[Rfam]
RNA sequence: ACAAAAAAACCGCUCCCCACAAGGGGUAGCGGAUCAUAGUCUCGGGGGCCGCUUGCGCGAACCCCCUCAUGGGAGAGGAGAAACCGGACGAAGAGCUUAUGGGGAAACGUAAGUCUUCUCCGCGG
Numbered sequence: 001a002c003a004a005a006a007a008a009a010c011c012g013c014u015c016c017c018c019a020c021a022a023g024g025g026g027u028a029g030c031g032g033a034u035c036a037u038a039g040u041c042u043c044g045g046g047g048g049c050c051g052c053u054u055g056c057g058c059g060a061a062c063c064c065c066c067u068c069a070u071g072g073g074a075g076a077g078g079a080g081a082a083a084c085c086g087g088a089c090g091a092a093g094a095g096c097u098u099a100u101g102g103g104g105a106a107a108c109g110u111a112a113g114u115c116u117u118c119u120c121c122g123c124g125g
Base pairs, nucleotide, nucleotide: 011031012030013029014028016026017025018024034072035071036070037069085122086121087120088119090118091117092116093115095114096113097112098111099110
RNA: ylbH leader
Organism: Paenibacillus hemerocallicola